[Rfam]
RNA: Small nucleolar RNA SNORD89
Organism: Gallus gallus
RNA sequence: GCUGAGGAAUGAUGACAAUAAAAGGCCGAAUUGCAGUGCCUCCAAAAAGCAGUUUGCUCUCAUUGGAAGCACAAUGACAAAAUUGUCCGAAGCGAAUGUUGGUCUGACCUCAGA
Numbered sequence: 001g002c003u004g005a006g007g008a009a010u011g012a013u014g015a016c017a018a019u020a021a022a023a024g025g026c027c028g029a030a031u032u033g034c035a036g037u038g039c040c041u042c043c044a045a046a047a048a049g050c051a052g053u054u055u056g057c058u059c060u061c062a063u064u065g066g067a068a069g070c071a072c073a074a075u076g077a078c079a080a081a082a083u084u085g086u087c088c089g090a091a092g093c094g095a096a097u098g099u100u101g102g103u104c105u106g107a108c109c110u111c112a113g114a
Base pairs, nucleotide, nucleotide: 002113003112004111005110006109007108014104015103016102025034026033035100036099037098038097041095042094043092049087052072053071055069058066059065073086076083